[Rfam]
Rfam assigns this 94-nucleotide sequence from Pseudomonas kuykendallii to the family "ivy-DE RNA".
NCBI's taxonomy places the organism under Bacteria, Pseudomonadota, Gammaproteobacteria, Pseudomonadales, Pseudomonas.

RNA sequence: UGAUCAGGGGGCCGGGUUGCUCUGAAUGCUUUGAAUUCGGAGCGACCUAGGGGUACAGCGAGUACUCCCGUUCGCGGGCCGGAUCAGGCGAAGC
Numbered sequence: 001u002g003a004u005c006a007g008g009g010g011g012c013c014g015g016g017u018u019g020c021u022c023u024g025a026a027u028g029c030u031u032u033g034a035a036u037u038c039g040g041a042g043c044g045a046c047c048u049a050g051g052g053g054u055a056c057a058g059c060g061a062g063u064a065c066u067c068c069c070g071u072u073c074g075c076g077g078g079c080c081g082g083a084u085c086a087g088g089c090g091a092a093g094c
Base pairs, nucleotide, nucleotide: 001086002085003084004083005082010080011079012078013077014048015047016046017045018044020042021041022040023039024038025037026036027035050068051067052066053065054064055063056062